[Rfam]
RNA sequence: AUAGCUUCACUGUUUAGGAAAUCUAUUUGCUGCUUGUUUGGUAUAUUAAUACUACUAGUAGUAGUGGUUAAGUGAAGCCAGAAAAAUGUUCUCCUCGCUAUUCAGUGUAACGACCAUGUUACAGUUGGACGUUGGAGAACUACAUUU
Numbered sequence: 001a002u003a004g005c006u007u008c009a010c011u012g013u014u015u016a017g018g019a020a021a022u023c024u025a026u027u028u029g030c031u032g033c034u035u036g037u038u039u040g041g042u043a044u045a046u047u048a049a050u051a052c053u054a055c056u057a058g059u060a061g062u063a064g065u066g067g068u069u070a071a072g073u074g075a076a077g078c079c080a081g082a083a084a085a086a087u088g089u090u091c092u093c094c095u096c097g098c099u100a101u102u103c104a105g106u107g108u109a110a111c112g113a114c115c116a117u118g119u120u121a122c123a124g125u126u127g128g129a130c131g132u133u134g135g136a137g138a139a140c141u142a143c144a145u146u147u
Stems, first nucleotide, its partner, number of pairs: 002081001004078002008074004022064001029062006036055001039054003088140007096131002101129005110119003